Overview
The record is a 107-nucleotide RNA from Neogobius melanostomus, which matches "Vault RNA" in Rfam. Rfam's curators write: This family of RNAs are found as part of the enigmatic vault ribonucleoprotein complex. The complex consists of a major vault protein (MVP), two minor vault proteins (VPARP and TEP1), and several small untranslated RNA molecules. It has been suggested that the vault complex is involved in drug resistance. The match comes from Rfam's covariance-model search (65 bits). By type it is a non-coding RNA gene. The organism belongs to Neogobius, within Eukaryota.

RNA sequence: GUGCUGGUGUAGCUCAGUGGUUACUUCGAUUGCAACUUCUCUCCUGUAGAGAUCUUCGACCUCCAUCCCUUCGUGGGAUCGAACCACGGGCGCUGUCCAGUGCUUUU
Numbered sequence: 001g002u003g004c005u006g007g008u009g010u011a012g013c014u015c016a017g018u019g020g021u022u023a024c025u026u027c028g029a030u031u032g033c034a035a036c037u038u039c040u041c042u043c044c045u046g047u048a049g050a051g052a053u054c055u056u057c058g059a060c061c062u063c064c065a066u067c068c069c070u071u072c073g074u075g076g077g078a079u080c081g082a083a084c085c086a087c088g089g090g091c092g093c094u095g096u097c098c099a100g101u102g103c104u105u106u107u
Base pairs, nucleotide, nucleotide: 002102003101004100005099006098007097012091013090014089015088017087018086019085020084025083026082027081028080029079030078031077